[Rfam]
MIR5565 microRNA precursor family: a 109-nucleotide sequence from Sorghum bicolor.
RNA sequence: GUAGUGAGAUUCGUAUCAAUCCACAUGUGUUGAAGUGAGUUGGAGUGGAACUCGAACUAAAUUCCACCUCAAUCCACUCCAACACACGUGGAUUGAGAUGAAUCUGACA
Number, nucleotide and partner (000 for none) at each position: 001g000002u000003a000004g108005u107006g000007a105008g104009a103010u102011u101012c100013g099014u098015a000016u096017c095018a094019a093020u092021c091022c090023a089024c088025a000026u086027g085028u084029g083030u082031u081032g080033a000034a000035g077036u076037g075038a000039g073040u072041u071042g070043g069044a000045g067046u066047g065048g000049a000050a000051c000052u000053c000054g000055a000056a000057c000058u000059a000060a000061a000062u000063u000064c000065c047066a046067c045068c000069u043070c042071a041072a040073u039074c000075c037076a036077c035078u000079c000080c032081a031082a030083c029084a028085c027086a026087c000088g024089u023090g022091g021092a020093u019094u018095g017096a016097g000098a014099u013100g012101a011102a010103u009104c008105u007106g000107a005108c004109a000
A search with the family's covariance model found it, with a score of 107 bits. Its family is annotated with miRNA-mediated post-transcriptional gene silencing and RISC complex in the Gene Ontology. The base pairs follow the family's consensus structure, which was predicted with RNAalifold.